The family of this 47-nucleotide sequence from Rosistilla oblonga is "Acido-Lenti-1 RNA". The base pairs follow the family's consensus structure, which is taken from published work. NCBI's taxonomy places the organism under Bacteria, Planctomycetota, Planctomycetia, Pirellulales, Rosistilla. Rfam classes the family as a small RNA.

RNA sequence: CCUGGGACUUGCGUCCCAGGCUGUUGCAUGUCGUCGCGUUUGCGACU
Numbered sequence: 001c002c003u004g005g006g007a008c009u010u011g012c013g014u015c016c017c018a019g020g021c022u023g024u025u026g027c028a029u030g031u032c033g034u035c036g037c038g039u040u041u042g043c044g045a046c047u
Stems, first nucleotide, its partner, number of pairs: 001020008033046005